[Rfam]
This 138-nucleotide sequence from Dianthovirus meliloti belongs to the Rfam family "3'TE-DR1 translation enhancer element". Rfam classes the family as a cis-regulatory element. A reference for the family is Sarnowska et al. (2007), "Hairpin structure within the 3'UTR of DNA polymerase beta mRNA acts as a post-transcriptional regulatory element and interacts with Hax-1", Nucleic Acids Res.

RNA sequence: GAACCGGUCUCGGACCCUGGUAAACAGGUACCUAGCGUAAUAGAAGGUCGCUAGAAAUCGGGUGGGCUUCACCUACGGGUAACCCACCGUCGAGAGGGAAAACCUCUGUGUGGUUGUGCGCACGUCGUUUCCUGAAGA
Numbered sequence: 001g002a003a004c005c006g007g008u009c010u011c012g013g014a015c016c017c018u019g020g021u022a023a024a025c026a027g028g029u030a031c032c033u034a035g036c037g038u039a040a041u042a043g044a045a046g047g048u049c050g051c052u053a054g055a056a057a058u059c060g061g062g063u064g065g066g067c068u069u070c071a072c073c074u075a076c077g078g079g080u081a082a083c084c085c086a087c088c089g090u091c092g093a094g095a096g097g098g099a100a101a102a103c104c105u106c107u108g109u110g111u112g113g114u115u116g117u118g119c120g121c122a123c124g125u126c127g128u129u130u131c132c133u134g135a136a137g138a
Stems, first nucleotide, its partner, number of pairs: 004134001006132002011127003016028004032054006039048001041046001061088006068082002071080003093107005108123005
Dot-bracket structure: ...(.((...(((..((((.....))))...((((((.(.(....).)))))))......((((((.((.(((....)))))))))))....(((((.....)))))(((((......))))).)))...)).)....